[Rfam]
The family of this 81-nucleotide sequence from Oryctolagus cuniculus is "Small nucleolar RNA SNORD115".
The literature on the family includes a 2000 paper in Proc Natl Acad Sci U S A by Cavaille et al., "Identification of brain-specific and imprinted small nucleolar RNA genes exhibiting an unusual genomic organization".
Gene Ontology terms of the family: nucleolus and RNA processing.
A search with the family's covariance model found it, with a score of 82 bits.
It is annotated as a C/D-box small nucleolar RNA.

RNA sequence: AGGUUGAUGAUGAGACCUCAUACUGUCUCGAAUAGAGAUGAUGACUUAAAAAUCAGGCUCAAUAGGAUUAUGAUGAGACCC
Numbered sequence: 001a002g003g004u005u006g007a008u009g010a011u012g013a014g015a016c017c018u019c020a021u022a023c024u025g026u027c028u029c030g031a032a033u034a035g036a037g038a039u040g041a042u043g044a045c046u047u048a049a050a051a052a053u054c055a056g057g058c059u060c061a062a063u064a065g066g067a068u069u070a071u072g073a074u075g076a077g078a079c080c081c
Stems, first nucleotide, its partner, number of pairs: 002080003005075002008072002